[Rfam]
RNA sequence: AGUGAGGGUAGAGGUGCAAAUAUCAUUAGUAUGUUAGCGGAGGAGAAUGAGAUCCGUGGAAACUAACAAAAAGGGGUGUUUGCCGAAGCUUAUGAAAUCUCAUCAAACCAUAAGCUGGGACUGUUCUGAACAAGGGCAGUACUGUCAUAUAGCAUACAAGCUAUAUGGAGGGCUAUCUCACAG
Numbered sequence: 001a002g003u004g005a006g007g008g009u010a011g012a013g014g015u016g017c018a019a020a021u022a023u024c025a026u027u028a029g030u031a032u033g034u035u036a037g038c039g040g041a042g043g044a045g046a047a048u049g050a051g052a053u054c055c056g057u058g059g060a061a062a063c064u065a066a067c068a069a070a071a072a073g074g075g076g077u078g079u080u081u082g083c084c085g086a087a088g089c090u091u092a093u094g095a096a097a098u099c100u101c102a103u104c105a106a107a108c109c110a111u112a113a114g115c116u117g118g119g120a121c122u123g124u125u126c127u128g129a130a131c132a133a134g135g136g137c138a139g140u141a142c143u144g145u146c147a148u149a150u151a152g153c154a155u156a157c158a159a160g161c162u163a164u165a166u167g168g169a170g171g172g173c174u175a176u177c178u179c180a181c182a183g
Stems, first nucleotide, its partner, number of pairs: 006178006016083009032068006087116008098105001117143002120140008145168007
This 183-nucleotide sequence from Halalkalibacter akibai belongs to the Rfam family "Lysine riboswitch aptamer". About the family: Riboswitches are metabolite binding domains within certain messenger RNAs that serve as precision sensors for their corresponding targets. Gene Ontology term of the family: lysine biosynthetic process. The family's consensus secondary structure is taken from published work.